[Rfam]
RNA sequence: CGAUUAACCGCCCGUUAACCUUUAUGGGGGUUAACUGUGGGCAUCCAGUCUCUGGAUUUGAACGGUUUGGUUUGCGCCACUCUGUUCGACGCCUCCCUGUUUAAUGCCUUCGAGCCGCUCAUCUAGCGGCUCUUUUUUU
Numbered sequence: 001c002g003a004u005u006a007a008c009c010g011c012c013c014g015u016u017a018a019c020c021u022u023u024a025u026g027g028g029g030g031u032u033a034a035c036u037g038u039g040g041g042c043a044u045c046c047a048g049u050c051u052c053u054g055g056a057u058u059u060g061a062a063c064g065g066u067u068u069g070g071u072u073u074g075c076g077c078c079a080c081u082c083u084g085u086u087c088g089a090c091g092c093c094u095c096c097c098u099g100u101u102u103a104a105u106g107c108c109u110u111c112g113a114g115c116c117g118c119u120c121a122u123c124u125a126g127c128g129g130c131u132c133u134u135u136u137u138u139u
Stems, first nucleotide, its partner, number of pairs: 001010002016033006043057004060082002064078002088101004112132008

The family of this 139-nucleotide sequence from Limoniibacter endophyticus is "Alphaproteobacterial sRNA BjrC1505".
By type it is a small RNA.